This 76-nucleotide RNA from Pseudorhodoplanes sinuspersici belongs to the Rfam family "Makes More Granules Regulator RNA (mmgR)".
SuhB later renamed mmgR (makes more granules regulator) was a putative non-coding RNA found multiple times in the Agrobacterium tumefaciens genome and related alpha-proteobacteria. Other non-coding RNAs uncovered in the same analysis include: speF, ybhL, metA, and serC.Several studies inSinorhizobium meliloti showed that suhB element is indeed a non-coding RNA:firstly it was detected on Northern blot and called Sm8RNA, secondly in an RNAseq study referred to as SmelC689.The mutant phenotype's (strain lacking the small RNA) cytoplasm contains higher content of polyhydroxybutyrate (PBH)storage granules than wild type strain.
The match comes from Rfam's covariance-model search (66 bits).
It is annotated as a small RNA.

RNA sequence: UCCCGCCGCCCUCCUUGGGCGUUUCCUCCCUAGGCUUGGGCCGCUCCUCAUCGAGCGGCCCUUUUUCGUUUCUAGA
Numbered sequence: 001u002c003c004c005g006c007c008g009c010c011c012u013c014c015u016u017g018g019g020c021g022u023u024u025c026c027u028c029c030c031u032a033g034g035c036u037u038g039g040g041c042c043g044c045u046c047c048u049c050a051u052c053g054a055g056c057g058g059c060c061c062u063u064u065u066u067c068g069u070u071u072c073u074a075g076a
Stems, first nucleotide, its partner, number of pairs: 008020004038061009